[Rfam]
RNA sequence: GCGGGCAUGGUGAAAUGGUAUCAUAAGAGCCUUCCAAGCUUAAGGUGCGGGUUCGAUUCCCGCUGCCCGCU
Numbered sequence: 001g002c003g004g005g006c007a008u009g010g011u012g013a014a015a016u017g018g019u020a021u022c023a024u025a026a027g028a029g030c031c032u033u034c035c036a037a038g039c040u041u042a043a044g045g046u047g048c049g050g051g052u053u054c055g056a057u058u059c060c061c062g063c064u065g066c067c068c069g070c071u
Stems, first nucleotide, its partner, number of pairs: 001070007010024004027041004047063005

tRNA: a 71-nucleotide RNA from Pseudaestuariivita atlantica. The family has 954 seed sequences and 5,335,975 matches in Rfam 15.1. Gene Ontology term of the family: triplet codon-amino acid adaptor activity.